The family of this 72-nucleotide sequence from Sciurus carolinensis is "Small nucleolar RNA SNORD101".
By type it is a C/D-box small nucleolar RNA.
The family has 26 seed sequences and 658 matches in Rfam 15.1.
A search with the family's covariance model found it, with a score of 68 bits.
The base pairs follow the family's consensus structure, which was predicted with PFOLD.
Its family is annotated with nucleolus and RNA processing in the Gene Ontology.

[Rfam]
RNA sequence: AUUUGCAUGAUGAGUUAAAUUGUUGGAUACUCUUCACCUCUUUUAUGAGUGAGAUAUAACAGUCUGACAAAA
Numbered sequence: 001a002u003u004u005g006c007a008u009g010a011u012g013a014g015u016u017a018a019a020u021u022g023u024u025g026g027a028u029a030c031u032c033u034u035c036a037c038c039u040c041u042u043u044u045a046u047g048a049g050u051g052a053g054a055u056a057u058a059a060c061a062g063u064c065u066g067a068c069a070a071a072a
Stems, first nucleotide, its partner, number of pairs: 002071004